[Rfam]
RNA sequence: CGCGCGGGCCGGGCCCCUCUGACGACGCACCCCAGGUGUCGUGAUGUCGGACCGCGUCG
Numbered sequence: 001c002g003c004g005c006g007g008g009c010c011g012g013g014c015c016c017c018u019c020u021g022a023c024g025a026c027g028c029a030c031c032c033c034a035g036g037u038g039u040c041g042u043g044a045u046g047u048c049g050g051a052c053c054g055c056g057u058c059g
Stems, first nucleotide, its partner, number of pairs: 006053002009050004022042007
The family of this 59-nucleotide RNA from Enterovirga aerilata is "terC RNA". Pairs were carried over by alignment from the consensus structure, which is taken from published work. Rfam classes the family as a cis-regulatory element. The match comes from Rfam's covariance-model search (58 bits).